Rfam assigns this 121-nucleotide sequence from Symbiodinium sp. CCMP2592 to the family "mir-395 microRNA precursor family". Its family is annotated with miRNA-mediated post-transcriptional gene silencing and RISC complex in the Gene Ontology. mir-395 was identified in both Arabidopsis thaliana and Oryza sativa computationally and was later experimentally verified. mir-395 is thought to target mRNAs coding for ATP sulphurylases. The literature on the family includes a 2004 paper in Mol Cell by Jones-Rhoades and Bartel, "Computational Identification of Plant MicroRNAs and Their Targets, Including a Stress-Induced miRNA".

RNA sequence: GAAUUACCCAGAGCCUCCAAAACCCCUUAAUUCAGGAAUAUACCUUCAAAUAUAAUAGGAUCCCUUAUAUGAUUUAAGGUAUAUUCCUUAAUUAAGGGGUUUUGGAGGCUCUGGGUACCAG
Numbered sequence: 001g002a003a004u005u006a007c008c009c010a011g012a013g014c015c016u017c018c019a020a021a022a023c024c025c026c027u028u029a030a031u032u033c034a035g036g037a038a039u040a041u042a043c044c045u046u047c048a049a050a051u052a053u054a055a056u057a058g059g060a061u062c063c064c065u066u067a068u069a070u071g072a073u074u075u076a077a078g079g080u081a082u083a084u085u086c087c088u089u090a091a092u093u094a095a096g097g098g099g100u101u102u103u104g105g106a107g108g109c110u111c112u113g114g115g116u117a118c119c120a121g
Base pairs, nucleotide, nucleotide: 005117006116007115008114009113011111012110013109014108015107016106017105018104019103020102021101022100023099024098025097026096027095028094029093030092031091032090034088035087036086037085038084039083040082041081042080043079044078